[Rfam]
RNA sequence: UGUCUCCUCCACCGCCUUUUGGUGGAUUUGGCCCUCUCCCGUGGCUCCGCCGCAGCAGAGGGCCUUUUUCU
Numbered sequence: 001u002g003u004c005u006c007c008u009c010c011a012c013c014g015c016c017u018u019u020u021g022g023u024g025g026a027u028u029u030g031g032c033c034c035u036c037u038c039c040c041g042u043g044g045c046u047c048c049g050c051c052g053c054a055g056c057a058g059a060g061g062g063c064c065u066u067u068u069u070c071u
Stems, first nucleotide, its partner, number of pairs: 008026007030064008
Betaproteobacteria toxic small RNA: a 71-nucleotide RNA sequence from Roseateles puraquae. Overexpression in amino aid rich medium attenuates growth, suggesting role in repressing amino acid intake and metabolism. It scores 51 bits against the family's covariance model. A reference for the family is Kimelman et al. (2012), "A vast collection of microbial genes that are toxic to bacteria", Genome Res. Rfam 15.1 lists 951 matches to the family in 508 species.